Shown here is a 137-nucleotide sequence from Thamnophis sirtalis, a member of the family "Small nucleolar RNA SNORA9". By type it is an H/ACA-box small nucleolar RNA. A search with the family's covariance model found it, with a score of 114 bits. The family's consensus secondary structure was predicted with PFOLD. Gene Ontology terms of the family: RNA processing and nucleolus. ACA9 is a member of the H/ACA class of snoRNA that guide the sites of modification of uridines to pseudouridines. Clan: SNORA9 clan.
RNA sequence: ACGCAAACCUUCCAGCGUGGCUGGGUCUCGUCAAUGACCCAGAUCAUUCCUGUUGUGUUUGCAAAAACAACCCCGGGACGGUUUGAGGCCUCUCCCUGCCCUUUUCCAGGGAGAGGUUAUAGAAAUCCCGGACAAGA
Dot-bracket structure: ..((((((.........(((..(((((........)))))...)))..........))))))...........(((((..........((((((.(((........))).)))))).........))))).......
Numbered sequence: 001a002c003g004c005a006a007a008c009c010u011u012c013c014a015g016c017g018u019g020g021c022u023g024g025g026u027c028u029c030g031u032c033a034a035u036g037a038c039c040c041a042g043a044u045c046a047u048u049c050c051u052g053u054u055g056u057g058u059u060u061g062c063a064a065a066a067a068c069a070a071c072c073c074c075g076g077g078a079c080g081g082u083u084u085g086a087g088g089c090c091u092c093u094c095c096c097u098g099c100c101c102u103u104u105u106c107c108a109g110g111g112a113g114a115g116g117u118u119a120u121a122g123a124a125a126u127c128c129c130g131g132a133c134a135a136g137a
Stems, first nucleotide, its partner, number of pairs: 003062006018046003023040005074130005089116006096109003